[Rfam]
Rfam assigns this 82-nucleotide RNA from Nomascus leucogenys to the family "Small nucleolar RNA SNORD115". Lineage of the source: Eukaryota > Eumetazoa > Amniota > Hominoidea > Nomascus. It scores 94 bits against the family's covariance model. The family's consensus secondary structure was predicted with PFOLD. Rfam links the family to the GO terms nucleolus and RNA processing.
RNA sequence: GAGUCGAUGAUGAGAACCUUAUAUUGUUCUGAAGAGAGGUGAUGACCUAAAAAUCAUUCUUAAAAGGAUUAUGCUGAGGCCC
Numbered sequence: 001g002a003g004u005c006g007a008u009g010a011u012g013a014g015a016a017c018c019u020u021a022u023a024u025u026g027u028u029c030u031g032a033a034g035a036g037a038g039g040u041g042a043u044g045a046c047c048u049a050a051a052a053a054u055c056a057u058u059c060u061u062a063a064a065a066g067g068a069u070u071a072u073g074c075u076g077a078g079g080c081c082c
Base pairs, nucleotide, nucleotide: 001082003080004079005076006075008073009072
Dot-bracket structure: (.((((.((..............................................................)).))..)).)